[Rfam]
Overview
The record is a 76-nucleotide sequence from Cyprinodon variegatus, which matches "mir-10 microRNA precursor family" in Rfam. A reference for the family is Lee and Ambros (2001), "An extensive class of small RNAs in Caenorhabditis elegans", Science. The family has 36 seed sequences and 3,853 matches in Rfam 15.1. The base pairs follow the family's consensus structure, which was predicted with PFOLD. The source organism's lineage runs through Eukaryota, Bilateria, Craniata, Cyprinodontiformes and Cyprinodon. Rfam links the family to the GO terms miRNA-mediated post-transcriptional gene silencing and RISC complex.

RNA sequence: CGGUAUACACCCUGUAGGUCCGAAUUUGUGUGAAUACUCAAGGAGUCACAGAUUCUCAUCUUGGGGAGUAUGCAGG
Dot-bracket structure: ..(((((..(((...((((..(((((((((................)))))))))..))))..)))..)))))...